[Rfam]
RNA sequence: AAGCAGCCACGAUAGCAGCGACAUCCUUUUUUGCGUCAGUUCGAGUUGGCGAAGCAAGUAUCGAGAACAAGCAAAAAAGAUAUAGCGGAUAGCGUGAAUUGCU
Numbered sequence: 001a002a003g004c005a006g007c008c009a010c011g012a013u014a015g016c017a018g019c020g021a022c023a024u025c026c027u028u029u030u031u032u033g034c035g036u037c038a039g040u041u042c043g044a045g046u047u048g049g050c051g052a053a054g055c056a057a058g059u060a061u062c063g064a065g066a067a068c069a070a071g072c073a074a075a076a077a078a079g080a081u082a083u084a085g086c087g088g089a090u091a092g093c094g095u096g097a098a099u100u101g102c103u
Stems, first nucleotide, its partner, number of pairs: 009095003013091002018086002023081003029076006036069001
Record summary:
The family of this 103-nucleotide RNA from Flavobacterium dankookense is "Flavo-1 RNA". It is annotated as a small RNA. Pairs were carried over by alignment from the consensus structure, which is taken from published work.